RNA sequence: UAAAGGCGAUGAAGCAGAAGGUUGCUGACACACCCGGCCCCUUUGCCAUGGCGAGCGUGUGGGAAAUUUCUGCGGAGUAUGUCUAUUUAAGAAAAUGGACGAAAA
Numbered sequence: 001u002a003a004a005g006g007c008g009a010u011g012a013a014g015c016a017g018a019a020g021g022u023u024g025c026u027g028a029c030a031c032a033c034c035c036g037g038c039c040c041c042u043u044u045g046c047c048a049u050g051g052c053g054a055g056c057g058u059g060u061g062g063g064a065a066a067u068u069u070c071u072g073c074g075g076a077g078u079a080u081g082u083c084u085a086u087u088u089a090a091g092a093a094a095a096u097g098g099a100c101g102a103a104a105a
Stems, first nucleotide, its partner, number of pairs: 014073003019069003025062002080104001082102002086099004